[Rfam]
RNA sequence: ACACAGCGAUGAUGUGGGAGGUUGCGACACACCCGGCAGCAUUGCCACGAGAUCCAUGCCAUGGAGUCUUGCGUGGUGUGUCGGUAGUUUCCACGGAGUUAGUUUCAUAUUCCAAUAUGGACGAAGG
Numbered sequence: 001a002c003a004c005a006g007c008g009a010u011g012a013u014g015u016g017g018g019a020g021g022u023u024g025c026g027a028c029a030c031a032c033c034c035g036g037c038a039g040c041a042u043u044g045c046c047a048c049g050a051g052a053u054c055c056a057u058g059c060c061a062u063g064g065a066g067u068c069u070u071g072c073g074u075g076g077u078g079u080g081u082c083g084g085u086a087g088u089u090u091c092c093a094c095g096g097a098g099u100u101a102g103u104u105u106c107a108u109a110u111u112c113c114a115a116u117a118u119g120g121a122c123g124a125a126g127g
Stems, first nucleotide, its partner, number of pairs: 014094003018091004025083009103126004110121003
The record is a 127-nucleotide RNA from Weissella viridescens, which matches "S10-Clostridia ribosomal protein leader" in Rfam.
The family's RNA type in Rfam is cis-regulatory leader.
NCBI's taxonomy places the organism under Bacteria, Bacillota, Bacilli, Lactobacillales, Weissella.